[Rfam]
Nucleotides: 065
Base pairs, nucleotide, nucleotide: 008030009029010028011027012026013025035058036057037056038055039054040053041052042051
Number, partner (000 for none) and nucleotide at each position: 001000u002000g003000u004000c005000u006000c007000c008030u009029c010028c011027a012026c013025c014000u015000c016000c017000u018000c019000a020000a021000a022000a023000c024000u025013g026012g027011u028010g029009g030008a031000u032000u033000c034000a035058g036057c037056c038055u039054c040053a041052a042051g043000c044000u045000g046000c047000a048000a049000a050000g051042c052041u053040u054039g055038a056037g057036g058035c059000u060000u061000u062000u063000u064000u065000u